[Rfam]
RNA sequence: UCAUCAGUAAGAUUAAUCCUUACAUGUUUGUCCUUGUGGAGGGUAGAUGUAACAAGCUAUUUAGAGAUCACAUGAUAUGUGAUUAAUAUUUCUGUGUAACAAGAACUUGCAGCAUCCUGAUUACUCCAGUAUGAU
Numbered sequence: 001u002c003a004u005c006a007g008u009a010a011g012a013u014u015a016a017u018c019c020u021u022a023c024a025u026g027u028u029u030g031u032c033c034u035u036g037u038g039g040a041g042g043g044u045a046g047a048u049g050u051a052a053c054a055a056g057c058u059a060u061u062u063a064g065a066g067a068u069c070a071c072a073u074g075a076u077a078u079g080u081g082a083u084u085a086a087u088a089u090u091u092c093u094g095u096g097u098a099a100c101a102a103g104a105a106c107u108u109g110c111a112g113c114a115u116c117c118u119g120a121u122u123a124c125u126c127c128a129g130u131a132u133g134a135u
Base pairs, nucleotide, nucleotide: 025045026044028043029042031040032039033038074092075091077089078088079087080085096124097123098122099121102118103117